[Rfam]
RNA sequence: UGGAAUAAGUAGAAGCACCCGCUUCUCACCUGAUCGACGCCUUUAGAGCAGUUGGCAGGUUUAAUCAGUUGAUUUCUUCUUAUGAAGAACAGUGAUGUGUGGGUGCAGUAUGUGUACCGACACUUUUUUAUUUUA
Numbered sequence: 001u002g003g004a005a006u007a008a009g010u011a012g013a014a015g016c017a018c019c020c021g022c023u024u025c026u027c028a029c030c031u032g033a034u035c036g037a038c039g040c041c042u043u044u045a046g047a048g049c050a051g052u053u054g055g056c057a058g059g060u061u062u063a064a065u066c067a068g069u070u071g072a073u074u075u076c077u078u079c080u081u082a083u084g085a086a087g088a089a090c091a092g093u094g095a096u097g098u099g100u101g102g103g104u105g106c107a108g109u110a111u112g113u114g115u116a117c118c119g120a121c122a123c124u125u126u127u128u129u130a131u132u133u134u135a
Stems, first nucleotide, its partner, number of pairs: 011026006028060003036053003039049002098122003102118006